[Rfam]
RNA sequence: AUGAGAGCAUAAGGAGAGACUGGCGCAUCGACGGCAGCGCCGAAGGAGUAAACCCGAAAGGGUGAAUCUCUCAGGCAAAAGGACUUUUGCAGGACG
Numbered sequence: 001a002u003g004a005g006a007g008c009a010u011a012a013g014g015a016g017a018g019a020c021u022g023g024c025g026c027a028u029c030g031a032c033g034g035c036a037g038c039g040c041c042g043a044a045g046g047a048g049u050a051a052a053c054c055c056g057a058a059a060g061g062g063u064g065a066a067u068c069u070c071u072c073a074g075g076c077a078a079a080a081g082g083a084c085u086u087u088u089g090c091a092g093g094a095c096g
Stems, first nucleotide, its partner, number of pairs: 007090003011086003020037003039076003042072002046070003052063002